[Rfam]
Nucleotides: 095
Stems, first nucleotide, its partner, number of pairs: 001027003004023005010018002061091003064087003068083001070082003
Number, partner (000 for none) and nucleotide at each position: 001027u002026g003025g004023g005022c006021a007020g008019u009000a010018u011017c012000g013000a014000a015000a016000u017011g018010a019008a020007c021006u022005g023004c024000a025003c026002c027001a028000c029000a030000a031000u032000a033000a034000a035000u036000g037000a038000a039000g040000u041000g042000a043000a044000a045000u046000g047000a048000a049000a050000a051000u052000a053000u054000g055000u056000g057000g058000a059000u060000u061091c062090u063089g064087c065086c066085u067000u068083g069000a070082u071081c072080c073000a074000a075000a076000a077000a078000c079000a080072g081071g082070a083068c084000u085066a086065g087064g088000a089063c090062a091061g092000a093000g094000g095000g

This 95-nucleotide RNA from Bacillus manliponensis belongs to the Rfam family "pan motif". NCBI's taxonomy places the organism under Bacteria, Bacillati, Bacillota, Bacilli, Bacillus. Rfam classes the family as a cis-regulatory element.